The record is a 201-nucleotide RNA sequence from Huiozyma naganishii, which matches "Small nucleolar RNA snR35" in Rfam. The family's RNA type in Rfam is H/ACA-box small nucleolar RNA. Its family is annotated with RNA processing and nucleolus in the Gene Ontology.

RNA sequence: AUCUUUAUUUAAUCGUGCGGAUUAAUAUAACAUCCAGGACUUUAAAAACCGUGUUGCUUGCUCCGUUUUACUGCGGAUCCAUAAGCGUCAAGUCCAUCGGAGAGAUAAACGUAUUCGGGACAGCGUGGUGGGGCGUGUGAAUCUGGCCGCUGGCAUUGCUCGUGGCCCGUUUCCCACCCCCCCACGCCAUUCCUUAUAUAG
Numbered sequence: 001a002u003c004u005u006u007a008u009u010u011a012a013u014c015g016u017g018c019g020g021a022u023u024a025a026u027a028u029a030a031c032a033u034c035c036a037g038g039a040c041u042u043u044a045a046a047a048a049c050c051g052u053g054u055u056g057c058u059u060g061c062u063c064c065g066u067u068u069u070a071c072u073g074c075g076g077a078u079c080c081a082u083a084a085g086c087g088u089c090a091a092g093u094c095c096a097u098c099g100g101a102g103a104g105a106u107a108a109a110c111g112u113a114u115u116c117g118g119g120a121c122a123g124c125g126u127g128g129u130g131g132g133g134c135g136u137g138u139g140a141a142u143c144u145g146g147c148c149g150c151u152g153g154c155a156u157u158g159c160u161c162g163u164g165g166c167c168c169g170u171u172u173c174c175c176a177c178c179c180c181c182c183c184a185c186g187c188c189a190u191u192c193c194u195u196a197u198a199u200a201g
Base pairs, nucleotide, nucleotide: 009025010024011023012022013021014020033101034100035099037095038094039093040092056086057085058084059083060079062077063076064075065074066073119192120191123187124186125185126184127183130182131181132180133179135177136176137175144169145168146167